[Rfam]
RNA sequence: CCGUCUGGCGUCCUAGGUGGGGCGCCGCGGGACCUUUCUUCUGUCUGUGGCGGUGGGAUCCCGUGGCCGUGUUUUCCUAGUGGCCCAGCC
Dot-bracket structure: ....((((..(((((((.((.(((((((((((((.(((........).)).)).....))))))))).)).))..))))).)).))))..
Numbered sequence: 001c002c003g004u005c006u007g008g009c010g011u012c013c014u015a016g017g018u019g020g021g022g023c024g025c026c027g028c029g030g031g032a033c034c035u036u037u038c039u040u041c042u043g044u045c046u047g048u049g050g051c052g053g054u055g056g057g058a059u060c061c062c063g064u065g066g067c068c069g070u071g072u073u074u075u076c077c078u079a080g081u082g083g084c085c086c087a088g089c090c
Stems, first nucleotide, its partner, number of pairs: 005088004011083002013080005019073002022070002024067009033053002036050002038047001
This 90-nucleotide RNA sequence from Nomascus leucogenys belongs to the Rfam family "mir-663 microRNA precursor family".